FMN riboswitch aptamer (RFN element): a 115-nucleotide RNA sequence from Clostridium sp. cel8. It scores 115 bits against the family's covariance model. Rfam 15.1 lists 6,230 matches to the family in 5,120 species.
RNA sequence: AGUAACUUUCAGGGCAGGGUGAAAUUCCCGAUCGGCGGUAUAGUCCGCAAGCCAUUUAGGCAGAACUGGUUUAAUUCCAGUACCGACAGUAAAGUCUGGAUGAAAGAAAGUAUAA
Number, nucleotide and partner (000 for none) at each position: 001a000002g000003u000004a000005a111006c110007u109008u108009u107010c106011a000012g000013g000014g000015c000016a000017g029018g028019g027020u000021g000022a000023a000024a000025u000026u000027c019028c018029c017030g000031a095032u094033c085034g084035g048036c047037g046038g045039u000040a000041u000042a000043g083044u082045c038046c037047g036048c035049a000050a000051g061052c060053c059054a000055u000056u000057u000058a000059g053060g052061c051062a000063g000064a000065a081066c080067u079068g078069g077070u000071u000072u000073a000074a000075u000076u000077c069078c068079a067080g066081u065082a044083c043084c034085g033086a000087c098088a097089g096090u000091a000092a000093a000094g032095u031096c089097u088098g087099g000100a000101u000102g000103a000104a000105a000106g010107a009108a008109a007110g006111u005112a000113u000114a000115a000